[Rfam]
RNA: Glycine riboswitch aptamer
Organism: Robinsoniella sp. RHS
RNA sequence: AAUGACAACUCUGGAGAGUCUCAAAGAACGGGCGCCGAAGGUGUACAGUGGGUAUAAUAUAAUGACCCGCCUAUCUCUCAGGCAAAAGGACAGGGCUAUAUCU
Numbered sequence: 001a002a003u004g005a006c007a008a009c010u011c012u013g014g015a016g017a018g019u020c021u022c023a024a025a026g027a028a029c030g031g032g033c034g035c036c037g038a039a040g041g042u043g044u045a046c047a048g049u050g051g052g053u054a055u056a057a058u059a060u061a062a063u064g065a066c067c068c069g070c071c072u073a074u075c076u077c078u079c080a081g082g083c084a085a086a087a088g089g090a091c092a093g094g095g096c097u098a099u100a101u102c103u
Base pairs, nucleotide, nucleotide: 007097009095010094011093012092013091020032021031022030034083035082036081037079038078041077043075047072048071